[Rfam]
RNA: Saccharopolyspora sRNA 350
RNA sequence: CGGGCGGUGUACUCCCAGAUGGCGUCCGCGUCGAGCAGGGCCUGGUCGCCGAAGUAGGCGCCGUCGGCGAGGACGCCGAGCACCGCGUCGUCGCCGUAGGGGCCGGUGCCGACCUUCUCGACCUUGCCGUGCGCCAGCAGGUAGACCUCUUCGGUCUGGCUGCCGAACGAGGCGAUCACGUCGCCGGGGCCGAACUCCCGCUGCUCGCAGCGCCGGGCCAGCUCCGAGAGCACCUCGUCGUCCUCGUACGAGCGCAGGGCCGGCAGCUCGGUCAGCUCCGCGGGGAUGACUUCGACCCGGUCACCCGUCUUCACGAACGUGACCCGGCCGUCGCCCACGGCGAAGGUUAAACGCCGGUUCACCCGGUACGUACCGCCCUGGAUGUCGACCCAGGGCAGUGUGCGCAGCAGCCAGCGCGAGCUGAUCUCCUGCAUCUGGGGCACGGACUUGGUCGUGGUGGCCAGGUUCCGCGCGGCCGCCGUGCCGAGGGACUGCUGCGG
Numbered sequence: 001c002g003g004g005c006g007g008u009g010u011a012c013u014c015c016c017a018g019a020u021g022g023c024g025u026c027c028g029c030g031u032c033g034a035g036c037a038g039g040g041c042c043u044g045g046u047c048g049c050c051g052a053a054g055u056a057g058g059c060g061c062c063g064u065c066g067g068c069g070a071g072g073a074c075g076c077c078g079a080g081c082a083c084c085g086c087g088u089c090g091u092c093g094c095c096g097u098a099g100g101g102g103c104c105g106g107u108g109c110c111g112a113c114c115u116u117c118u119c120g121a122c123c124u125u126g127c128c129g130u131g132c133g134c135c136a137g138c139a140g141g142u143a144g145a146c147c148u149c150u151u152c153g154g155u156c157u158g159g160c161u162g163c164c165g166a167a168c169g170a171g172g173c174g175a176u177c178a179c180g181u182c183g184c185c186g187g188g189g190c191c192g193a194a195c196u197c198c199c200g201c202u203g204c205u206c207g208c209a210g211c212g213c214c215g216g217g218c219c220a221g222c223u224c225c226g227a228g229a230g231c232a233c234c235u236c237g238u239c240g241u242c243c244u245c246g247u248a249c250g251a252g253c254g255c256a257g258g259g260c261c262g263g264c265a266g267c268u269c270g271g272u273c274a275g276c277u278c279c280g281c282g283g284g285g286a287u288g289a290c291u292u293c294g295a296c297c298c299g300g301u302c303a304c305c306c307g308u309c310u311u312c313a314c315g316a317a318c319g320u321g322a323c324c325c326g327g328c329c330g331u332c333g334c335c336c337a338c339g340g341c342g343a344a345g346g347u348u349a350a351a352c353g354c355c356g357g358u359u360c361a362c363c364c365g366g367u368a369c370g371u372a373c374c375g376c377c378c379u380g381g382a383u384g385u386c387g388a389c390c391c392a393g394g395g396c397a398g399u400g401u402g403c404g405c406a407g408c409a410g411c412c413a414g415c416g417c418g419a420g421c422u423g424a425u426c427u428c429c430u431g432c433a434u435c436u437g438g439g440g441c442a443c444g445g446a447c448u449u450g451g452u453c454g455u456g457g458u459g460g461c462c463a464g465g466u467u468c469c470g471c472g473c474g475g476c477c478g479c480c481g482u483g484c485c486g487a488g489g490g491a492c493u494g495c496u497g498c499g500g
Stems, first nucleotide, its partner, number of pairs: 006390003011385002015381002018328001021325002025322001027321004031316002037311005045304002048301004054233002059228001061226001063224001065111004075103001077102001082097002085094002118221001120219001122217002126213002130209001133205001135203003140198002143196002149192001155188006161178002235295003240290003244286002249283001252281003256277002260271003329342004351379001353377001355375003361371002391431005397425001399423002403418003407415001437476001440473001443470004447465006484499001487496002
Dot-bracket structure: .....(((..((..((.(..((..(.((((((....(((((...((.((((..((...(.(.(.((((......(.(....((.((......)).))....))....))))......(.(.((..((..(..(.(((..((.((....(.....((((((((..............))....))))))...)..))))..))).)...)..))..)).).)..).).)...)).(((..(((.((...(..(((.((..(((......)))....)).))).).)).)))..)))..)))).))..)))))...)).))))).))..)((((......))))........(.(.(((...((.......)).))).).)))..))..)))(((((.(.((..(((.(.......))))...)).).))))).....(..(..((((((((((.......)))))).))))..)..).......(..((......))..).